About this RNA: The record is a 111-nucleotide sequence from Sinanaerobacter chloroacetimidivorans, which matches "TPP riboswitch aptamer (THI element)" in Rfam. Taxonomically the source falls in Sinanaerobacter (Bacteria, Bacillati, Bacillota, Clostridia). Gene Ontology term of the family: thiamine pyrophosphate binding.
RNA sequence: AUAAUUGCACAGGGGAGCUGGGAUUGGCCAGCUGAGAGUAAGAACCACAAAUCUUUUACCCUAUACCUGAUCUGGAUAAUACUAGCGUAGGGAGUUGUUAAUACUUAUAUU
Numbered sequence: 001a002u003a004a005u006u007g008c009a010c011a012g013g014g015g016a017g018c019u020g021g022g023a024u025u026g027g028c029c030a031g032c033u034g035a036g037a038g039u040a041a042g043a044a045c046c047a048c049a050a051a052u053c054u055u056u057u058a059c060c061c062u063a064u065a066c067c068u069g070a071u072c073u074g075g076a077u078a079a080u081a082c083u084a085g086c087g088u089a090g091g092g093a094g095u096u097g098u099u100a101a102u103a104c105u106u107a108u109a110u111u
Stems, first nucleotide, its partner, number of pairs: 007098003011062004016056001017032005040055004066091004072085004